[Rfam]
RNA: ZMP/ZTP riboswitch aptamer (pfl RNA motif)
RNA sequence: ACCACGGGCCGUGACUGGCGCGUGAAGAUGGAGAACCAUCGGGGAGCGGUCCCGUCAUCAGGACGCAUGCCGAGCGCCUGGGCCUUCCCG
Numbered sequence: 001a002c003c004a005c006g007g008g009c010c011g012u013g014a015c016u017g018g019c020g021c022g023u024g025a026a027g028a029u030g031g032a033g034a035a036c037c038a039u040c041g042g043g044g045a046g047c048g049g050u051c052c053c054g055u056c057a058u059c060a061g062g063a064c065g066c067a068u069g070c071c072g073a074g075c076g077c078c079u080g081g082g083c084c085u086u087c088c089c090g
Stems, first nucleotide, its partner, number of pairs: 006052007015043002017078005028039004067085001069083003
Dot-bracket structure: .....(((((((..(([[[[[......((((....))))..))..)))))))..............(.(((..]]]]]..))).).....